[Rfam]
A member of the RNA family "Small nucleolar RNA snoR26" from Manihot esculenta, 94 nucleotides long. Lineage of the source: Eukaryota > Embryophyta > Pentapetalae > fabids > Manihot. Pairs were carried over by alignment from the consensus structure, which was predicted with WAR. It scores 97 bits against the family's covariance model.
RNA sequence: UUGGCAUCGGUGAUGAGUUGAUAAAAAAAUCGUUAUCCUUGCACUUUGAUUCACAGUGAAGAAAAUCAUGGGGAUUUAUCACUCUGAGAUGCUC
Numbered sequence: 001u002u003g004g005c006a007u008c009g010g011u012g013a014u015g016a017g018u019u020g021a022u023a024a025a026a027a028a029a030u031c032g033u034u035a036u037c038c039u040u041g042c043a044c045u046u047u048g049a050u051u052c053a054c055a056g057u058g059a060a061g062a063a064a065a066u067c068a069u070g071g072g073g074a075u076u077u078a079u080c081a082c083u084c085u086g087a088g089a090u091g092c093u094c
Base pairs, nucleotide, nucleotide: 003093004092005091006090007089008088
Dot-bracket structure: ..((((((...............................................................................)))))).